[Rfam]
RNA sequence: GGGGAAUUAGCUCAACGGUAGAGCACCUGCUUUGCAAGCAGGGGGUUAUCGGUUCGAAUCCGAUAUUCUCCA
Numbered sequence: 001g002g003g004g005a006a007u008u009a010g011c012u013c014a015a016c017g018g019u020a021g022a023g024c025a026c027c028u029g030c031u032u033u034g035c036a037a038g039c040a041g042g043g044g045g046u047u048a049u050c051g052g053u054u055c056g057a058a059u060c061c062g063a064u065a066u067u068c069u070c071c072a
Stems, first nucleotide, its partner, number of pairs: 001071007010024004026042005048064005
This 72-nucleotide RNA from Charybdisvirus scam3 belongs to the Rfam family "tRNA".
Taxonomically the source falls in Charybdisvirus scam3 (Viruses, Uroviricota, Caudoviricetes, Kyanoviridae).
Gene Ontology term of the family: triplet codon-amino acid adaptor activity.